Shown here is a 101-nucleotide RNA from Turnix velox, a member of the family "mir-454 microRNA precursor family".
Gene Ontology terms of the family: RISC complex and miRNA-mediated post-transcriptional gene silencing.
RNA sequence: GCUCCUUGACCUUAAGGAUGAGACCCUAUCAAUAUUGCCUCUGCUUUUGUGCUCGGGGUAGUAGUGCAAUAUUGCUUAUAGGGUCUUUUCUUUGGAGGGUU
Numbered sequence: 001g002c003u004c005c006u007u008g009a010c011c012u013u014a015a016g017g018a019u020g021a022g023a024c025c026c027u028a029u030c031a032a033u034a035u036u037g038c039c040u041c042u043g044c045u046u047u048u049g050u051g052c053u054c055g056g057g058g059u060a061g062u063a064g065u066g067c068a069a070u071a072u073u074g075c076u077u078a079u080a081g082g083g084u085c086u087u088u089u090c091u092u093u094g095g096a097g098g099g100u101u
Stems, first nucleotide, its partner, number of pairs: 020087010030074009041064005